Annotation:
MIR2670 microRNA precursor family: a 198-nucleotide RNA from Medicago truncatula. Pairs were carried over by alignment from the consensus structure, which was predicted with RNAalifold. Gene Ontology terms of the family: RISC complex and miRNA-mediated post-transcriptional gene silencing. The sequence is in the family's curated seed alignment.
RNA sequence: UCGGGGCAAAUAGUGAGUAGCCGAUUUGGGGAAGUGAUCAACCCCUAGGAUAAGUUUAAAUUUGUUUUUUUUACCCCAGAGACUUUUUACCGUGGCUAAAAAGAUCUUCUUGGGGGUAUAAAAAGAACCAUAUUUAAAUUUAGCCCAAGGGUUGAUGAUGUAUUUUCCUCAAGAAGGUUGCUCACUAUUUUACCCCAA
Numbered sequence: 001u002c003g004g005g006g007c008a009a010a011u012a013g014u015g016a017g018u019a020g021c022c023g024a025u026u027u028g029g030g031g032a033a034g035u036g037a038u039c040a041a042c043c044c045c046u047a048g049g050a051u052a053a054g055u056u057u058a059a060a061u062u063u064g065u066u067u068u069u070u071u072u073a074c075c076c077c078a079g080a081g082a083c084u085u086u087u088u089a090c091c092g093u094g095g096c097u098a099a100a101a102a103g104a105u106c107u108u109c110u111u112g113g114g115g116g117u118a119u120a121a122a123a124a125g126a127a128c129c130a131u132a133u134u135u136a137a138a139u140u141u142a143g144c145c146c147a148a149g150g151g152u153u154g155a156u157g158a159u160g161u162a163u164u165u166u167c168c169u170c171a172a173g174a175a176g177g178u179u180g181c182u183c184a185c186u187a188u189u190u191u192a193c194c195c196c197a198a
Stems, first nucleotide, its partner, number of pairs: 003196004008191003011187012025173010037159004041152003046147001048145002051142004056137006063130002066127007073117005079111001083103007091095001